A member of the RNA family "Bacillaceae-1 RNA" from Paenisporosarcina antarctica, 67 nucleotides long. The family's consensus secondary structure is taken from published work.
RNA sequence: GAUAACGGAAGGAAGGCUAAAUGCCCGACAUCGUGUCGGAACGCCUUCCUGACCCACAUCGUGUGGG
Numbered sequence: 001g002a003u004a005a006c007g008g009a010a011g012g013a014a015g016g017c018u019a020a021a022u023g024c025c026c027g028a029c030a031u032c033g034u035g036u037c038g039g040a041a042c043g044c045c046u047u048c049c050u051g052a053c054c055c056a057c058a059u060c061g062u063g064u065g066g067g
Base pairs, nucleotide, nucleotide: 011049012048013047014046015045016044017043025039026038027037028036029035053067054066055065056064057063